Shown here is a 100-nucleotide RNA from Carnegiea gigantea, a member of the family "mir-395 microRNA precursor family". The match comes from Rfam's covariance-model search (68 bits). For this family Rfam cites "Computational Identification of Plant MicroRNAs and Their Targets, Including a Stress-Induced miRNA" (Jones-Rhoades and Bartel, Mol Cell, 2004). NCBI's taxonomy places the organism under Eukaryota, Embryophyta, Mesangiospermae, Cactineae, Carnegiea. Rfam 15.1 lists 2,798 matches to the family in 234 species. About the family: mir-395 was identified in both Arabidopsis thaliana and Oryza sativa computationally and was later experimentally verified. mir-395 is thought to target mRNAs coding for ATP sulphurylases. The mature sequence is excised from the 3' arm of the hairpin.

RNA sequence: UGUUGUCCUAGAGUUCCUCCCAAACACUUCAGCAGGGUAAAAUAGCUUAAUUGCAUAAGCUUGCCCUAACUGAAGUGUUUGGGGGAACUCCUGGGCUCAU
Numbered sequence: 001u002g003u004u005g006u007c008c009u010a011g012a013g014u015u016c017c018u019c020c021c022a023a024a025c026a027c028u029u030c031a032g033c034a035g036g037g038u039a040a041a042a043u044a045g046c047u048u049a050a051u052u053g054c055a056u057a058a059g060c061u062u063g064c065c066c067u068a069a070c071u072g073a074a075g076u077g078u079u080u081g082g083g084g085g086a087a088c089u090c091c092u093g094g095g096c097u098c099a100u
Base pairs, nucleotide, nucleotide: 005096006095007094008093011090012089013088014087015086016085017084018083019082020081022080023079024078025077026076027075028074029073030072031071032070035067036066